[Rfam]
Annotation
Rfam assigns this 113-nucleotide sequence from Sphaeramia orbicularis to the family "Potassium channel RNA editing signal". Rfam 15.1 lists 14,095 matches to the family in 1,000 species. About the family: This family represents a group of sequences related to the human potassium channel Kv1.1 hairpin element which directs the efficient modification of an adenosine to inosine by an adenosine deaminase acting on RNA (ADAR). The family's consensus secondary structure is taken from published work. The literature on the family includes a 2004 paper in Nat Struct Mol Biol by Bhalla et al., "Control of human potassium channel inactivation by editing of a small mRNA hairpin".

RNA sequence: GCAGGUAUGGUGACAUGGUUCCAAACACCAUCGCAGGGAAGAUUUUCGGUUCAAUCUGCUCGCUCAGUGGUGUGUUGGUGAUCGCCCUGCCUGUCCCCGUCAUCGUUUCCAAC
Numbered sequence: 001g002c003a004g005g006u007a008u009g010g011u012g013a014c015a016u017g018g019u020u021c022c023a024a025a026c027a028c029c030a031u032c033g034c035a036g037g038g039a040a041g042a043u044u045u046u047c048g049g050u051u052c053a054a055u056c057u058g059c060u061c062g063c064u065c066a067g068u069g070g071u072g073u074g075u076u077g078g079u080g081a082u083c084g085c086c087c088u089g090c091c092u093g094u095c096c097c098c099g100u101c102a103u104c105g106u107u108u109c110c111a112a113c
Base pairs, nucleotide, nucleotide: 001113004110005109007106008105009104010103012101013100014099017096018095020093036076037075039073049061